RNA sequence: CGAUAGAACAGGCUUUCUAUUUAAGGGUGGUCGGCAUUCAUCCCAACAGGAGGGGGUGAUGCUGUUGUCAGUUUUUGAAGCGUUGAUGUUUGCACUGGCUUUUACUGGUUUAGUCAUUUCAGUGCUGUCAUUUAACCAAAAAAAGAAAUAACCCACCCUUGAGCUUGCCGGCUAAGAUGGAUUAUUUCUUCAUUUCUACGCCCGAUCUCCCCUUUAAAGGGAACUGUUCUAUUGUGACCAAAGAUGAAACAACAUCUUUG
Numbered sequence: 001c002g003a004u005a006g007a008a009c010a011g012g013c014u015u016u017c018u019a020u021u022u023a024a025g026g027g028u029g030g031u032c033g034g035c036a037u038u039c040a041u042c043c044c045a046a047c048a049g050g051a052g053g054g055g056g057u058g059a060u061g062c063u064g065u066u067g068u069c070a071g072u073u074u075u076u077g078a079a080g081c082g083u084u085g086a087u088g089u090u091u092g093c094a095c096u097g098g099c100u101u102u103u104a105c106u107g108g109u110u111u112a113g114u115c116a117u118u119u120c121a122g123u124g125c126u127g128u129c130a131u132u133u134a135a136c137c138a139a140a141a142a143a144a145g146a147a148a149u150a151a152c153c154c155a156c157c158c159u160u161g162a163g164c165u166u167g168c169c170g171g172c173u174a175a176g177a178u179g180g181a182u183u184a185u186u187u188c189u190u191c192a193u194u195u196c197u198a199c200g201c202c203c204g205a206u207c208u209c210c211c212c213u214u215u216a217a218a219g220g221g222a223a224c225u226g227u228u229c230u231a232u233u234g235u236g237a238c239c240a241a242a243g244a245u246g247a248a249a250c251a252a253c254a255u256c257u258u259u260g
Stems, first nucleotide, its partner, number of pairs: 001234005007228003011224001016205002020163008029153003038059007067129001069127004080095001082093001173192001175190001208222004239260008
A member of the RNA family "BsrG" from Bacillus aquiflavi, 260 nucleotides long. The literature on the family includes a 2008 paper in Gene by Saito et al., "Novel small RNA-encoding genes in the intergenic regions of Bacillus subtilis". Its family is annotated with toxin activity and autolysis in the Gene Ontology. Rfam's curators write: bsrE, bsrG and bsrH pair through intermolecular interactions with antisense sRNAs. They form type I toxin/antitoxin system that includes an mRNA encoding for a short, toxic peptide (bsrE, bsrG and bsrH) and an antitoxin that is comprised of an antisense RNA. bsrG encodes a 39-amino-acid toxin, and the 180 nucleotide antisense sRNA called SR4 acts as the antitoxin (they overlap by 123 nucleotides). SR4 interaction with the 3'UTR of bsrG RNA promotes bsrG degradation and inhibits its translation. BsrG interferes with cell envelope biosynthesis, causes membrane invaginations and delocalisation of the cell wall synthesis and initiates autolysis. bsrE RNA encodes 30 amino-acid toxin peptide. It is annotated as a small RNA. Pairs were carried over by alignment from the consensus structure, which was predicted with WAR.